RNA sequence: AUCGGCAUUGCUGAUGAGCGCUGAAUGAAUUCGCCGCUCGCAAUGCUUCGUCGCGAUCUGGCUUUGACCACGGAUGUACUGGCAUUGGUAAAGAGGCGACGAUGAGGAAGGUCGGUGCGAUUUCGCCCCGGCCUUUUUUGUU
Numbered sequence: 001a002u003c004g005g006c007a008u009u010g011c012u013g014a015u016g017a018g019c020g021c022u023g024a025a026u027g028a029a030u031u032c033g034c035c036g037c038u039c040g041c042a043a044u045g046c047u048u049c050g051u052c053g054c055g056a057u058c059u060g061g062c063u064u065u066g067a068c069c070a071c072g073g074a075u076g077u078a079c080u081g082g083c084a085u086u087g088g089u090a091a092a093g094a095g096g097c098g099a100c101g102a103u104g105a106g107g108a109a110g111g112u113c114g115g116u117g118c119g120a121u122u123u124c125g126c127c128c129c130g131g132c133c134u135u136u137u138u139u140g141u142u
Base pairs, nucleotide, nucleotide: 004047005046006045007044008043009042016039017038018037019036020035050100051099052098053097054096059090060089062087065084066083068082069081070080102141103140104139105138106137107136108135109134110133111132112131113130114129115128117126118125119124
Alphaproteobacterial sRNA ar35: a 142-nucleotide RNA from Neorhizobium alkalisoli.
The pairing is the family consensus, mapped onto this sequence.
Lineage of the source: Bacteria > Pseudomonadota > Alphaproteobacteria > Rhizobiaceae > Neorhizobium.
By type it is a small RNA.